Glycine riboswitch aptamer: a 107-nucleotide RNA from Teichococcus deserti.
A search with the family's covariance model found it, with a score of 66 bits.
The pairing is the family consensus, mapped onto this sequence.
The source organism's lineage runs through Bacteria, Pseudomonadati, Alphaproteobacteria, Roseomonadaceae and Roseomonas.
RNA sequence: AGAUCCCACGCGGGAGAGCACAGCGCCCGGGUUUCCCUGGGUUUGGCUGUCGCCGAAGGCGCAACCGGCCCCCGGAAACGCUCAGGCAGAAGGGCCGCGUGGGUAGG
Numbered sequence: 001a002g003a004u005c006c007c008a009c010g011c012g013g014g015a016g017a018g019c020a021c022a023g024c025g026c027c028c029g030g031g032u033u034u035c036c037c038u039g040g041g042u043u044u045g046g047c048u049g050u051c052g053c054c055g056a057a058g059g060c061g062c063a064a065c066c067g068g069c070c071c072c073c074g075g076a077a078a079c080g081c082u083c084a085g086g087c088a089g090a091a092g093g094g095c096c097g098c099g100u101g102g103g104u105a106g107g
Base pairs, nucleotide, nucleotide: 006102007101008100009099010098011097012096013095020050021049022048023047052087053086054085055083056082059081060080061079065075066074